[Rfam]
RNA sequence: GGGUGCUCAGGAUCUUUUGGUUCUGAGUAUUGCCAGGGCCGAAAGAGAAAGAGCCCCACCGGAAUAGUCAUUAACUACUGGUGAGGCCACUCUCAUGCCCAAGAAACAUGAAGGUAGCCUUUUACCUGCCGCGAGGCAAGGAUAAGGAGGCCAUGAUG
Numbered sequence: 001g002g003g004u005g006c007u008c009a010g011g012a013u014c015u016u017u018u019g020g021u022u023c024u025g026a027g028u029a030u031u032g033c034c035a036g037g038g039c040c041g042a043a044a045g046a047g048a049a050a051g052a053g054c055c056c057c058a059c060c061g062g063a064a065u066a067g068u069c070a071u072u073a074a075c076u077a078c079u080g081g082u083g084a085g086g087c088c089a090c091u092c093u094c095a096u097g098c099c100c101a102a103g104a105a106a107c108a109u110g111a112a113g114g115u116a117g118c119c120u121u122u123u124a125c126c127u128g129c130c131g132c133g134a135g136g137c138a139a140g141g142a143u144a145a146g147g148a149g150g151c152c153a154u155g156a157u158g
Stems, first nucleotide, its partner, number of pairs: 001057003005054004013046010024036001027033002058082004063076001065074001067072001083121005089115003093111005125150003129146001
The record is a 158-nucleotide sequence from Erwinia sp. Leaf53, which matches "sok antitoxin (CssrC)" in Rfam. From the family's description: Also identified in Shigella as CssrC. The family's RNA type in Rfam is antitoxin RNA. For this family Rfam cites "Nucleotide sequence and transcriptional analysis of a third function (Flm) involved in F-plasmid maintenance" (Loh et al., Gene, 1988). Lineage of the source: Bacteria > Pseudomonadati > Gammaproteobacteria > Enterobacterales > Erwinia.